RNA sequence: UCCAGCAGAGUCGGCUACUCAUUGCUGCUCAGUGCUUGGGAUAGUGUUAUGCUGCUGGGAAAGAAAUGGGCUGCUGAGUGACUCCUGGCAUCGCCGGUGCUGUUCUGGUGCCAGGCGGUGCCAGGUUUGGCAGCACGCUGCAUCUGUGAGAGUGGAGUAGCUCCUCCUCCAUGGAGUUAAUCCUAGAUCGGCUGCAGACAGU
Numbered sequence: 001u002c003c004a005g006c007a008g009a010g011u012c013g014g015c016u017a018c019u020c021a022u023u024g025c026u027g028c029u030c031a032g033u034g035c036u037u038g039g040g041a042u043a044g045u046g047u048u049a050u051g052c053u054g055c056u057g058g059g060a061a062a063g064a065a066a067u068g069g070g071c072u073g074c075u076g077a078g079u080g081a082c083u084c085c086u087g088g089c090a091u092c093g094c095c096g097g098u099g100c101u102g103u104u105c106u107g108g109u110g111c112c113a114g115g116c117g118g119u120g121c122c123a124g125g126u127u128u129g130g131c132a133g134c135a136c137g138c139u140g141c142a143u144c145u146g147u148g149a150g151a152g153u154g155g156a157g158u159a160g161c162u163c164c165u166c167c168u169c170c171a172u173g174g175a176g177u178u179a180a181u182c183c184u185a186g187a188u189c190g191g192c193u194g195c196a197g198a199c200a201g202u
Base pairs, nucleotide, nucleotide: 001059002058003057004056005055006054007053008052010050011049014045015044016043017042019040020038021037024035025034068136070134071133072132073131074130075129076128084125085124086123087122088121089120090119091118092117093116095114096111098110099109100108101107138197139196140195141194142193144191145190154183155182156181158179159178160177161176162175163174164173

Small nucleolar RNA SNORA74: a 202-nucleotide sequence from Crotophaga sulcirostris. The base pairs follow the family's consensus structure, which was predicted with PFOLD. It is annotated as an H/ACA-box small nucleolar RNA. Its Rfam clan is "SNORA74 clan". On this family, see Ganot et al., Genes Dev 1997: "The family of box ACA small nucleolar RNAs is defined by an evolutionarily conserved secondary structure and ubiquitous sequence elements essential for RNA accumulation". U19 belongs to the H/ACA class of snoRNAs. snoRNAs bind a number of proteins (including dyskerin, Gar1p and Nop10p in the case of the H/ACA class) to form snoRNP complexes. This class are thought to guide the sites of modification of uridines to pseudouridines by forming direct base pairing interactions with substrate RNAs. Targets may include ribosomal and spliceosomal RNAs but the exact functions of many snoRNAs, including U19, are not confirmed. Taxonomically the source falls in Crotophaga (Eukaryota, Craniata, Teleostomi, Crotophagidae).